Rfam assigns this 72-nucleotide sequence from Armadillidium nasatum to the family "mir-71 microRNA precursor family". For this family Rfam cites "Direct sequencing and expression analysis of a large number of miRNAs in Aedes aegypti and a multi-species survey of novel mosquito miRNAs" (Li et al., BMC Genomics, 2009). Pairs were carried over by alignment from the consensus structure, which was predicted with RNAalifold. The family has 36 seed sequences and 372 matches in Rfam 15.1.
RNA sequence: UCCCCGUGAAAGACAAGGUAGUGAGAUGCCACUAAUUUCUUACAUCUCACUACCCAUGUCUUUCAGAGGAAA
Numbered sequence: 001u002c003c004c005c006g007u008g009a010a011a012g013a014c015a016a017g018g019u020a021g022u023g024a025g026a027u028g029c030c031a032c033u034a035a036u037u038u039c040u041u042a043c044a045u046c047u048c049a050c051u052a053c054c055c056a057u058g059u060c061u062u063u064c065a066g067a068g069g070a071a072a
Stems, first nucleotide, its partner, number of pairs: 008064008017054002020051009